[Rfam]
A member of the RNA family "RT-13 RNA" from Siculibacillus lacustris, 68 nucleotides long. A search with the family's covariance model found it, with a score of 86 bits. Pairs were carried over by alignment from the consensus structure, which is taken from published work. The source organism's lineage runs through Bacteria, Pseudomonadati, Pseudomonadota, Hyphomicrobiales and Siculibacillus.
RNA sequence: GCGUGCGUUCGGGGGAUGUCCGGUCAACCGCCGGGGCUCAGGGUCAGAGCUAAUCCCCCGAACUCUGC
Dot-bracket structure: ......(((((((((((..(((((.....))))).((((.......))))..))))))))))).....